[Rfam]
RNA: HIV Ribosomal frameshift signal
RNA sequence: UUUUUUAGGGAAGCUAUGGCCUUCCGACAGAGGAAGGCCGGGGAAUUUUCCU
Numbered sequence: 001u002u003u004u005u006u007a008g009g010g011a012a013g014c015u016a017u018g019g020c021c022u023u024c025c026g027a028c029a030g031a032g033g034a035a036g037g038c039c040g041g042g043g044a045a046u047u048u049u050c051c052u
Stems, first nucleotide, its partner, number of pairs: 008052006015042001017040009